Notes: This 74-nucleotide RNA from Pseudoprevotella muciniphila belongs to the Rfam family "L13-Bacteroidia ribosomal protein leader".
[Rfam]
RNA sequence: AAGGCGCCGUAAAAGUCGCCUUAACUGCGUGUAAAUAGCGGCAGCCAUUGGCCGGCUGCAGUGGUUUGGGAAUC
Numbered sequence: 001a002a003g004g005c006g007c008c009g010u011a012a013a014a015g016u017c018g019c020c021u022u023a024a025c026u027g028c029g030u031g032u033a034a035a036u037a038g039c040g041g042c043a044g045c046c047a048u049u050g051g052c053c054g055g056c057u058g059c060a061g062u063g064g065u066u067u068g069g070g071a072a073u074c
Stems, first nucleotide, its partner, number of pairs: 001022006032068005038062002041059006
Lineage of the source: Bacteria > Pseudomonadati > Bacteroidota > Bacteroidales > Pseudoprevotella. The family's consensus secondary structure is taken from published work.